RNA: Small nucleolar RNA R64/Z200 family
RNA sequence: UCAUUGCGGUGAUGAUAUAUGAAUUUUCGCAUGUCAGACUUCGGAGAUGCUUCUGGCAUCCAUGAGAAGAUAUAUCAUAUUACUGAGCAAUGA
Numbered sequence: 001u002c003a004u005u006g007c008g009g010u011g012a013u014g015a016u017a018u019a020u021g022a023a024u025u026u027u028c029g030c031a032u033g034u035c036a037g038a039c040u041u042c043g044g045a046g047a048u049g050c051u052u053c054u055g056g057c058a059u060c061c062a063u064g065a066g067a068a069g070a071u072a073u074a075u076c077a078u079a080u081u082a083c084u085g086a087g088c089a090a091u092g093a
Stems, first nucleotide, its partner, number of pairs: 001093007046060004